[Rfam]
RNA: Small nucleolar RNA SNORA68
RNA sequence: CUCACACUCCAACCCAAGAAUAACUACUUCUGGUAGCAGUGGUUUAAACAGAGGUGCACACAACAAGUGGACCUUAUUGUUGGGAGCUGUUGCUGUGUCCCUCAAAGUGAAUGUGGAGGUUCUAUACCC
Numbered sequence: 001c002u003c004a005c006a007c008u009c010c011a012a013c014c015c016a017a018g019a020a021u022a023a024c025u026a027c028u029u030c031u032g033g034u035a036g037c038a039g040u041g042g043u044u045u046a047a048a049c050a051g052a053g054g055u056g057c058a059c060a061c062a063a064c065a066a067g068u069g070g071a072c073c074u075u076a077u078u079g080u081u082g083g084g085a086g087c088u089g090u091u092g093c094u095g096u097g098u099c100c101c102u103c104a105a106a107g108u109g110a111a112u113g114u115g116g117a118g119g120u121u122c123u124a125u126a127c128c129c
Stems, first nucleotide, its partner, number of pairs: 005056004019044003023040003027036002069122007080105003083101002086098002